RNA sequence: AGAGCAGGCCUUUCAGGCAUCCUCUCCUAUAAACUUUCAAGGGUCGGCCUCCGGGUCGACCCCUUUUUUUUGCCUAU
Numbered sequence: 001a002g003a004g005c006a007g008g009c010c011u012u013u014c015a016g017g018c019a020u021c022c023u024c025u026c027c028u029a030u031a032a033a034c035u036u037u038c039a040a041g042g043g044u045c046g047g048c049c050u051c052c053g054g055g056u057c058g059a060c061c062c063c064u065u066u067u068u069u070u071u072g073c074c075u076a077u
Base pairs, nucleotide, nucleotide: 008018009017010016011015041062042061043060044059045058046057047056048055049054